The family of this 72-nucleotide sequence from Labedaea rhizosphaerae is "ASpks TB sRNA". A search with the family's covariance model found it, with a score of 68 bits.
RNA sequence: CUUCACCGAACCGAGCCACAACGGCUCACCAGUGCGGUCGUUGCCGUAGGUGGCGAGCAACGCCUGCGCCUC
Numbered sequence: 001c002u003u004c005a006c007c008g009a010a011c012c013g014a015g016c017c018a019c020a021a022c023g024g025c026u027c028a029c030c031a032g033u034g035c036g037g038u039c040g041u042u043g044c045c046g047u048a049g050g051u052g053g054c055g056a057g058c059a060a061c062g063c064c065u066g067c068g069c070c071u072c
Stems, first nucleotide, its partner, number of pairs: 014026004032067002035062002041056002044053003
Dot-bracket structure: .............((((.....)))).....((.((....((.(((....))).))....))...)).....